Record summary
mir-263 microRNA precursor family: an 80-nucleotide RNA from Lingula anatina. The family is grouped with related families in Rfam's "mir-182 clan". Pairs were carried over by alignment from the consensus structure, which was predicted with RNAalifold.
RNA sequence: GUCUGUCCACCAAUGGCACUGGUAGAAUUCACGGUUGCUAUGGAAACCCGUGGGUUUUCCGGUGCCAUACGUGGAUUGAU
Numbered sequence: 001g002u003c004u005g006u007c008c009a010c011c012a013a014u015g016g017c018a019c020u021g022g023u024a025g026a027a028u029u030c031a032c033g034g035u036u037g038c039u040a041u042g043g044a045a046a047c048c049c050g051u052g053g054g055u056u057u058u059c060c061g062g063u064g065c066c067a068u069a070c071g072u073g074g075a076u077u078g079a080u
Base pairs, nucleotide, nucleotide: 003078005076006075007074008073009072010071013068014067015066016065017064018063020061021060022059025056026055029053030052031051032050033049034048